[Rfam]
RNA sequence: UGAGCGAUAAUCCUGAAUUUAUUUGCGAGCUGGACGAUCUGAGGAUCUAGCACCAUGUAAAUUCAGCAUUUGAACUC
Numbered sequence: 001u002g003a004g005c006g007a008u009a010a011u012c013c014u015g016a017a018u019u020u021a022u023u024u025g026c027g028a029g030c031u032g033g034a035c036g037a038u039c040u041g042a043g044g045a046u047c048u049a050g051c052a053c054c055a056u057g058u059a060a061a062u063u064c065a066g067c068a069u070u071u072g073a074a075c076u077c
Stems, first nucleotide, its partner, number of pairs: 013066010024055002027053001030050002033047002035044001

Shown here is a 77-nucleotide sequence from Ancylostoma ceylanicum, a member of the family "mir-83 microRNA precursor family". It scores 63 bits against the family's covariance model. Lineage of the source: Eukaryota > Bilateria > Chromadorea > Rhabditomorpha > Ancylostoma. Rfam 15.1 lists 60 matches to the family in 55 species.